Source information: Shown here is an 86-nucleotide sequence from Brevibacillus sp. WF146, a member of the family "Group II catalytic intron D1-D4-1". A search with the family's covariance model found it, with a score of 72 bits.
RNA sequence: CAACCGCCUCCGUGAGGGGGCGUUGAACAUGCAGAAGUCAGCAGAGGCCAUAGUACCCCAAUCGGGGACGCCUGAGGGGGAAGGGC
Numbered sequence: 001c002a003a004c005c006g007c008c009u010c011c012g013u014g015a016g017g018g019g020g021c022g023u024u025g026a027a028c029a030u031g032c033a034g035a036a037g038u039c040a041g042c043a044g045a046g047g048c049c050a051u052a053g054u055a056c057c058c059c060a061a062u063c064g065g066g067g068a069c070g071c072c073u074g075a076g077g078g079g080g081a082a083g084g085g086c
Stems, first nucleotide, its partner, number of pairs: 001025002005022007038045002047086003056079003062076001